[Rfam]
Nucleotides: 138
Stems, first nucleotide, its partner, number of pairs: 002061005016047003019042007083128001086126002089123003097117005103112002
Number, partner (000 for none) and nucleotide at each position: 001000u002061g003060g004059a005058g006057g007000c008000c009000u010000g011000a012000g013000a014000a015000a016047g017046u018045g019042a020041g021040g022039c023038a024037g025036u026000u027000c028000u029000g030000u031000a032000c033000c034000a035000u036025g037024c038023u039022g040021c041020c042019u043000u044000c045018c046017a047016c048000c049000g050000g051000u052000u053000a054000a055000g056000g057006c058005c059004u060003c061002c062000a063000a064000c065000a066000g067000c068000a069000a070000a071000c072000a073000g074000c075000u076000g077000c078000c079000u080000a081000c082000a083128c084000a085000g086126a087125g088000a089123g090122u091121g092000u093000c094000c095000c096000u097117u098116u099115g100114c101113c102000a103112c104111c105000c106000u107000c108000a109000g110000a111104g112103g113101g114100g115099c116098a117097g118000c119000g120000c121091u122090g123089u124000c125087c126086u127000g128083g129000c130000c131000g132000a133000c134000a135000u136000u137000u138000g